[Rfam]
RNA sequence: ACUGAGGCUAGAGCCUCGCUUGGGUAUCAACUUUUGCCUCAGUGUGCUGGAACCCCCAGAAUAACGCCUGCCCUUAUUCACUGGCUGUGGGCUUCGUGGCACAGUCAGCAGGUUAAUGACAUCC
Number, nucleotide and partner (000 for none) at each position: 001a000002c059003u058004g057005a000006g055007g053008c000009u051010a000011g000012a048013g047014c000015c046016u000017c044018g043019c042020u041021u000022g000023g038024g037025u036026a035027u000028c000029a000030a000031c000032u000033u000034u000035u026036g025037c024038c023039u000040c000041a020042g019043u018044g017045u000046g015047c013048u012049g000050g000051a009052a000053c007054c000055c006056c000057c004058a003059g002060a000061a000062u000063a000064a000065c000066g000067c000068c000069u115070g114071c000072c112073c111074u110075u000076a000077u000078u000079c000080a000081c000082u107083g106084g105085c000086u103087g102088u101089g100090g000091g000092c000093u000094u000095c000096g000097u000098g000099g000100c089101a088102c087103a086104g000105u084106c083107a082108g000109c000110a074111g073112g072113u000114u070115a069116a000117u000118g000119a000120c000121a000122u000123c000124c000

Small nucleolar RNA SNORA3/SNORA45 family: a 124-nucleotide RNA sequence from Tupaia belangeri. Rfam 15.1 lists 2,080 matches to the family in 639 species. By type it is an H/ACA-box small nucleolar RNA. From the family's description: The members of this family belong to the H/ACA class of snoRNAs which are thought to guide the sites of modification of uridines to pseudouridines. This family includes mouse snoMBI-28 and human homologues ACA3 (SNORA3) and ACA3-2 (SNORA45). Both ACA3 and ACA3-2 share the same host gene. MBI-28, ACA3 and ACA3-2 are all predicted to guide the pseudouridylation of residues in 28S rRNA. It scores 58 bits against the family's covariance model. Rfam links the family to the GO terms RNA processing and nucleolus.